A member of the RNA family "mir-484 microRNA precursor family" from Chrysochloris asiatica, 69 nucleotides long.
NCBI's taxonomy places the organism under Eukaryota, Metazoa, Eumetazoa, Eutheria, Chrysochloris.
Gene Ontology terms of the family: miRNA-mediated post-transcriptional gene silencing and RISC complex.
For this family Rfam cites "MicroRNA transcriptome in the newborn mouse ovaries determined by massive parallel sequencing" (Ahn et al., Mol Hum Reprod, 2010).
[Rfam]
RNA sequence: UCGUCAGGCUCAGUCCCCUCCGCAUAAAACCCUCUAAUAGGGACCUUCCCUGUGGGUUGAUACUGACCU
Numbered sequence: 001u002c003g004u005c006a007g008g009c010u011c012a013g014u015c016c017c018c019u020c021c022g023c024a025u026a027a028a029a030c031c032c033u034c035u036a037a038u039a040g041g042g043a044c045c046u047u048c049c050c051u052g053u054g055g056g057u058u059g060a061u062a063c064u065g066a067c068c069u
Base pairs, nucleotide, nucleotide: 003067004066005065007063010060011059013057014056015055016054018052024047026046030042031041032040033039